[Rfam]
RNA sequence: GGCAUAUUUUGCCCAGGUGGAGCUCGGCCGCCCCUCCAAACGAUGAUCUCGUUCAUCGACGAACGCCGCGGAGUGUUCCGGGUCGAGCCGAUCUGCAGACUGCUGCCGAUUGCCCCG
Numbered sequence: 001g002g003c004a005u006a007u008u009u010u011g012c013c014c015a016g017g018u019g020g021a022g023c024u025c026g027g028c029c030g031c032c033c034c035u036c037c038a039a040a041c042g043a044u045g046a047u048c049u050c051g052u053u054c055a056u057c058g059a060c061g062a063a064c065g066c067c068g069c070g071g072a073g074u075g076u077u078c079c080g081g082g083u084c085g086a087g088c089c090g091a092u093c094u095g096c097a098g099a100c101u102g103c104u105g106c107c108g109a110u111u112g113c114c115c116c117g
Stems, first nucleotide, its partner, number of pairs: 016032005078117001080115003089112002092109002095106004
RNA: ALIL pseudoknot
Organism: Rhizobium sp. Root482